[Rfam]
This 96-nucleotide RNA from Sulfidibacter corallicola belongs to the Rfam family "Bacterial small signal recognition particle RNA". The match comes from Rfam's covariance-model search (53 bits). About the family: The signal recognition particle (SRP) is a universally conserved ribonucleoprotein involved in the co-translational targeting of proteins to membranes. The organism belongs to Sulfidibacter, within Bacteria. The family's RNA type in Rfam is non-coding RNA gene.
RNA sequence: GAAUCAGGCAUCGGUGGCGGAAGCUUGUGAACCGUGUCAGGCCUUGACGGGAGCAGCACUAAGCGAGUCCUUUCGGGCACCGGUGUCUGACUGUUC
Number, nucleotide and partner (000 for none) at each position: 001g000002a000003a000004u090005c089006a088007g087008g086009c085010a084011u083012c082013g081014g080015u077016g000017g000018c075019g074020g073021a072022a071023g068024c067025u066026u065027g064028u063029g000030a000031a000032c000033c000034g059035u058036g057037u056038c000039a000040g000041g000042c051043c050044u049045u000046g000047a000048c000049g044050g043051g042052a000053g000054c000055a000056g037057c036058a035059c034060u000061a000062a000063g028064c027065g026066a025067g024068u023069c000070c000071u022072u021073u020074c019075g018076g000077g015078c000079a000080c014081c013082g012083g011084u010085g009086u008087c007088u006089g005090a004091c000092u000093g000094u000095u000096c000